[Rfam]
RNA: TPP riboswitch aptamer (THI element)
RNA sequence: GCGACAGAUCGCGGGGGCCCGGCGAACCGGGCUGAGAUAGCGGCUGAGACGGCCGCUGACCGCUCGAACCUGACCGGGUAAUGCCGGCGUAGGGAGAGAUCGGGUCGUGACGAA
Numbered sequence: 001g002c003g004a005c006a007g008a009u010c011g012c013g014g015g016g017g018c019c020c021g022g023c024g025a026a027c028c029g030g031g032c033u034g035a036g037a038u039a040g041c042g043g044c045u046g047a048g049a050c051g052g053c054c055g056c057u058g059a060c061c062g063c064u065c066g067a068a069c070c071u072g073a074c075c076g077g078g079u080a081a082u083g084c085c086g087g088c089g090u091a092g093g094g095a096g097a098g099a100u101c102g103g104g105u106c107g108u109g110a111c112g113a114a
Stems, first nucleotide, its partner, number of pairs: 007101004011063004017032005039057008069093004074087004